Source information: A member of the RNA family "Small nucleolar RNA R44/J54/Z268 family" from Rhynchospora breviuscula, 101 nucleotides long. Its family is annotated with RNA processing and nucleolus in the Gene Ontology.
RNA sequence: UGGGCGAGUGAUGAGUAAAAUGUAGACAGUGACAUCAGCACUCCUUUUUGAAUUUCAAAAAGGUGGAUGAUGACUCUAAAUGGGAAUCUCUCUGAUGCCUU
Dot-bracket structure: .(((((.........................................................................................))))).
Numbered sequence: 001u002g003g004g005c006g007a008g009u010g011a012u013g014a015g016u017a018a019a020a021u022g023u024a025g026a027c028a029g030u031g032a033c034a035u036c037a038g039c040a041c042u043c044c045u046u047u048u049u050g051a052a053u054u055u056c057a058a059a060a061a062g063g064u065g066g067a068u069g070a071u072g073a074c075u076c077u078a079a080a081u082g083g084g085a086a087u088c089u090c091u092c093u094g095a096u097g098c099c100u101u
Stems, first nucleotide, its partner, number of pairs: 002100005

Overview
The family is grouped with related families in Rfam's "SNORD74 clan".